This 35-nucleotide RNA sequence from Chrysochloris asiatica belongs to the Rfam family "Iron response element I".
For this family Rfam cites "Identification of the iron-responsive element for the translational regulation of human ferritin mRNA" (Hentze et al., Science, 1987).
[Rfam]
Nucleotides: 035
Stems, first nucleotide, its partner, number of pairs: 001035004006031002010028001012027005017021001
Number, partner (000 for none) and nucleotide at each position: 001035c002034g003033g004032u005000c006031u007030u008000c009000u010028g011000c012027u013026u014025c015024a016023a017021c018000a019000g020000u021017g022000c023016u024015u025014g026013a027012a028010c029000u030007g031006a032004a033003c034002c035001g

The family's RNA type in Rfam is cis-regulatory element.